[Rfam]
The record is a 35-nucleotide RNA sequence from Cervus elaphus, which matches "Iron response element I" in Rfam. For this family Rfam cites "Identification of the iron-responsive element for the translational regulation of human ferritin mRNA" (Hentze et al., Science, 1987). The family's RNA type in Rfam is cis-regulatory element. The organism belongs to Cervus elaphus, within Eukaryota.

RNA sequence: CCGUCUCUUGCUUCAACAGGGUUUGGACGAGACAG
Numbered sequence: 001c002c003g004u005c006u007c008u009u010g011c012u013u014c015a016a017c018a019g020g021g022u023u024u025g026g027a028c029g030a031g032a033c034a035g
Base pairs, nucleotide, nucleotide: 001035003033004032006031008029010028012027013026014025015024016023017021